[Rfam]
Nucleotides: 085
Base pairs, nucleotide, nucleotide: 012038013037017033018032019031020030022029023028041079042078043077044076046075047074048073049070050069051068056064
Number, partner (000 for none) and nucleotide at each position: 001000u002000a003000c004000c005000g006000a007000u008000a009000a010000c011000g012038g013037c014000a015000a016000a017033c018032u019031u020030a021000u022029u023028c024000g025000a026000a027000a028023g029022a030020u031019a032018a033017g034000g035000a036000c037013g038012c039000a040000a041079a042078g043077c044076c045000a046075c047074g048073g049070g050069c051068c052000u053000a054000a055000g056064u057000g058000a059000a060000a061000u062000c063000g064056a065000u066000a067000g068051g069050g070049c071000a072000g073048c074047c075046g076044g077043g078042u079041u080000a081000c082000c083000g084000a085000a